Rfam assigns this 58-nucleotide RNA sequence from Cryobacterium sp. SO1 to the family "msiK RNA". It is annotated as a cis-regulatory element. The match comes from Rfam's covariance-model search (64 bits). Pairs were carried over by alignment from the consensus structure, which is taken from published work.
[Rfam]
RNA sequence: GCACAAAUCCCAUCACAACGGAUCGUCCGGCACGUACCUGCCGGUGAAGGAGAAUAAC
Numbered sequence: 001g002c003a004c005a006a007a008u009c010c011c012a013u014c015a016c017a018a019c020g021g022a023u024c025g026u027c028c029g030g031c032a033c034g035u036a037c038c039u040g041c042c043g044g045u046g047a048a049g050g051a052g053a054a055u056a057a058c
Base pairs, nucleotide, nucleotide: 009050010049013047014046015045027044028043029042030041031040032039